[Rfam]
RNA sequence: GAUAGCCUGCUGUCGCUACUGUGAUUGGACACUGACACAGAGUCAAUUAGCCUUGUGGGGCGGUUCUUCGGGGAGGAACCGGGGCGGUCCGAGCCACGAGGGGGGAGGCUCGGGCCGUCCGCC
Numbered sequence: 001g002a003u004a005g006c007c008u009g010c011u012g013u014c015g016c017u018a019c020u021g022u023g024a025u026u027g028g029a030c031a032c033u034g035a036c037a038c039a040g041a042g043u044c045a046a047u048u049a050g051c052c053u054u055g056u057g058g059g060g061c062g063g064u065u066c067u068u069c070g071g072g073g074a075g076g077a078a079c080c081g082g083g084g085c086g087g088u089c090c091g092a093g094c095c096a097c098g099a100g101g102g103g104g105g106a107g108g109c110u111c112g113g114g115c116c117g118u119c120c121g122c123c
Stems, first nucleotide, its partner, number of pairs: 001014005015051004021032003033045004061070003075080001083119013097104001
A member of the RNA family "Streptomyces RNA 3920" from Streptomyces qinzhouensis, 123 nucleotides long. Identified by deep sequencing of transcriptome at the end of exponential growth phase. Sequencing size consistent with northern blot size. Streptomyces specific. The base pairs follow the family's consensus structure. The family's RNA type in Rfam is small RNA. It scores 109 bits against the family's covariance model.